[Rfam]
Shown here is a 71-nucleotide RNA sequence from Danionella cerebrum, a member of the family "mir-451 microRNA precursor family". The match comes from Rfam's covariance-model search (78 bits). Lineage of the source: Eukaryota > Metazoa > Actinopteri > Danionidae > Danionella.
RNA sequence: AAGAGAUCGUCAGCUAAACCGUUACCAUUACUGAGUUUAGUAAUGGUAAGGGUUCUGCUGCCGACUCUCAA
Numbered sequence: 001a002a003g004a005g006a007u008c009g010u011c012a013g014c015u016a017a018a019c020c021g022u023u024a025c026c027a028u029u030a031c032u033g034a035g036u037u038u039a040g041u042a043a044u045g046g047u048a049a050g051g052g053u054u055c056u057g058c059u060g061c062c063g064a065c066u067c068u069c070a071a
Stems, first nucleotide, its partner, number of pairs: 007064003011060003017054004022049012